Rfam assigns this 67-nucleotide RNA from Laodelphax striatellus to the family "Small nucleolar RNA SNORD2".
NCBI's taxonomy places the organism under Eukaryota, Eumetazoa, Neoptera, Fulgoromorpha, Laodelphax.

RNA sequence: AGUUGAAAUGAUGCUUACAUCUUUCGGGUCUGAAUACAUUUGAUGACACCUUUUUUACUGAUCAUCU
Numbered sequence: 001a002g003u004u005g006a007a008a009u010g011a012u013g014c015u016u017a018c019a020u021c022u023u024u025c026g027g028g029u030c031u032g033a034a035u036a037c038a039u040u041u042g043a044u045g046a047c048a049c050c051u052u053u054u055u056u057a058c059u060g061a062u063c064a065u066c067u
Base pairs, nucleotide, nucleotide: 001067002066004064005063006062
Dot-bracket structure: ((.(((.......................................................))).))
Pairs were carried over by alignment from the consensus structure, which was predicted with WAR. It is annotated as a C/D-box small nucleolar RNA. It scores 40 bits against the family's covariance model. Gene Ontology terms of the family: RNA processing and nucleolus.